[Rfam]
RNA sequence: CCCUCCCAGCCGAUGCACCAAUGAUUGAUAUUGAAUUUAUCAUUGUGCCUUGGCCAGGGGUAG
Numbered sequence: 001c002c003c004u005c006c007c008a009g010c011c012g013a014u015g016c017a018c019c020a021a022u023g024a025u026u027g028a029u030a031u032u033g034a035a036u037u038u039a040u041c042a043u044u045g046u047g048c049c050u051u052g053g054c055c056a057g058g059g060g061u062a063g
Stems, first nucleotide, its partner, number of pairs: 003060004009054005015048004020043001023041003
About this RNA: mir-7911 microRNA precursor family: a 63-nucleotide RNA sequence from Panagrellus redivivus. Gene Ontology terms of the family: RISC complex and miRNA-mediated post-transcriptional gene silencing.